Record summary
L31-Corynebacteriaceae ribosomal protein leader: a 57-nucleotide RNA sequence from Corynebacterium callunae. It is one of the family's seed sequences. The source organism's lineage runs through Bacteria, Actinomycetota, Mycobacteriales, Corynebacterium and Corynebacterium callunae. By type it is a cis-regulatory leader. On this family, see Eckert and Weinberg, BMC Microbiol 2020: "Discovery of 20 novel ribosomal leader candidates in bacteria and archaea".
[Rfam]
RNA sequence: ACUCGGGCACGAUCCGCAAAAAUGCUGGAACCGACCUGAAGUUUCUAUCCUGAGGGA
Numbered sequence: 001a002c003u004c005g006g007g008c009a010c011g012a013u014c015c016g017c018a019a020a021a022a023u024g025c026u027g028g029a030a031c032c033g034a035c036c037u038g039a040a041g042u043u044u045c046u047a048u049c050c051u052g053a054g055g056g057a
Stems, first nucleotide, its partner, number of pairs: 001042003004038004013029003016025002